M-box riboswitch aptamer (ykoK leader): a 170-nucleotide RNA from Paenibacillus popilliae. M-box riboswitch, also know as ykoK leader is described as a metaloregulatory RNA that sense divalent metals and function as a genetic control element of genes related to divalent metal transport in bacteria. The pairing is the family consensus, mapped onto this sequence. Lineage of the source: Bacteria > Bacillati > Bacilli > Caryophanales > Paenibacillus popilliae. A reference for the family is Barrick et al. (2004), "New RNA motifs suggest an expanded scope for riboswitches in bacterial genetic control", Proc Natl Acad Sci U S A. The match comes from Rfam's covariance-model search (154 bits). The family has 159 seed sequences and 1,095 matches in Rfam 15.1.
RNA sequence: UAAAAUCCUCGUUAGGUGAGGCUCCUAUACGAACAUAGGCCACUGCCCAGAAAUAUCGAAAGAUGCCAAUGGGUAGAACAGGAACUGCCGGAUUAAGGCUUUUCUUAAGGUGGCUAAGAGCGGACGCUCUUUACGUUGUAUAGUGCUAAAACUAGACUAGGGGGAACCAA
Numbered sequence: 001u002a003a004a005a006u007c008c009u010c011g012u013u014a015g016g017u018g019a020g021g022c023u024c025c026u027a028u029a030c031g032a033a034c035a036u037a038g039g040c041c042a043c044u045g046c047c048c049a050g051a052a053a054u055a056u057c058g059a060a061a062g063a064u065g066c067c068a069a070u071g072g073g074u075a076g077a078a079c080a081g082g083a084a085c086u087g088c089c090g091g092a093u094u095a096a097g098g099c100u101u102u103u104c105u106u107a108a109g110g111u112g113g114c115u116a117a118g119a120g121c122g123g124a125c126g127c128u129c130u131u132u133a134c135g136u137u138g139u140a141u142a143g144u145g146c147u148a149a150a151a152c153u154a155g156a157c158u159a160g161g162g163g164g165a166a167c168c169a170a
Stems, first nucleotide, its partner, number of pairs: 006165005011157002013096001015153003020147003025143008039114005045074005054065004081105004087099003116131003